[Rfam]
RNA: FMN riboswitch aptamer (RFN element)
Organism: Arthrobacter echini
RNA sequence: UACGUGCUCCGGGGUCGGUGUAAGUCCGAACCGGCGGUGAUAGUCCGCGACCCGCUCCACGUUCCGCACCCGCGGGACGGGAUCGGUUGAGCCGGUGGAAUUCCGGGACCGACAGUCAAAGUCUGGAUGGGAGAAGCACGCA
Numbered sequence: 001u002a003c004g005u006g007c008u009c010c011g012g013g014g015u016c017g018g019u020g021u022a023a024g025u026c027c028g029a030a031c032c033g034g035c036g037g038u039g040a041u042a043g044u045c046c047g048c049g050a051c052c053c054g055c056u057c058c059a060c061g062u063u064c065c066g067c068a069c070c071c072g073c074g075g076g077a078c079g080g081g082a083u084c085g086g087u088u089g090a091g092c093c094g095g096u097g098g099a100a101u102u103c104c105g106g107g108a109c110c111g112a113c114a115g116u117c118a119a120a121g122u123c124u125g126g127a128u129g130g131g132a133g134a135a136g137c138a139c140g141c142a
Base pairs, nucleotide, nucleotide: 003140004139005138006137007136008135010133016028017027018026030122031121032111033110034048035047036046037045043109044108052086053085092106093105094104095103113125114124115123